[Rfam]
RNA sequence: CCCAGGGUUAAAACCCUGGGCUAUGUUUGGUGCGUCCCUCCGGGACG
Numbered sequence: 001c002c003c004a005g006g007g008u009u010a011a012a013a014c015c016c017u018g019g020g021c022u023a024u025g026u027u028u029g030g031u032g033c034g035u036c037c038c039u040c041c042g043g044g045a046c047g
Base pairs, nucleotide, nucleotide: 001020002019003018004017005016006015007014008013034046035045036044037043038042
Annotation: A member of the RNA family "Acido-Lenti-1 RNA" from Candidatus Electrothrix aarhusensis, 47 nucleotides long. The match comes from Rfam's covariance-model search (37 bits). By type it is a small RNA. The organism belongs to Candidatus Electrothrix, within Bacteria.